Source information: The record is a 99-nucleotide RNA from Firmicutes bacterium CAG:194, which matches "TPP riboswitch aptamer (THI element)" in Rfam. It scores 67 bits against the family's covariance model. Pairs were carried over by alignment from the consensus structure, which is taken from published work.
[Rfam]
RNA sequence: AACAAGCGCUAGGGGAGCAACUGCUGAGAUUGACCUAUGGUCUAACCCUCAAUACCUGAUCCGGAUAAUGCCGGCGAAGGGAAGCCGAAAAUACACAGC
Numbered sequence: 001a002a003c004a005a006g007c008g009c010u011a012g013g014g015g016a017g018c019a020a021c022u023g024c025u026g027a028g029a030u031u032g033a034c035c036u037a038u039g040g041u042c043u044a045a046c047c048c049u050c051a052a053u054a055c056c057u058g059a060u061c062c063g064g065a066u067a068a069u070g071c072c073g074g075c076g077a078a079g080g081g082a083a084g085c086c087g088a089a090a091a092u093a094c095a096c097a098g099c
Stems, first nucleotide, its partner, number of pairs: 008085003011049004016043001017024002032042004055080003061074004
Dot-bracket structure: .......(((((((.(((....)).......((((...)))))..)))).....(((...((((......))))...)))..)))..............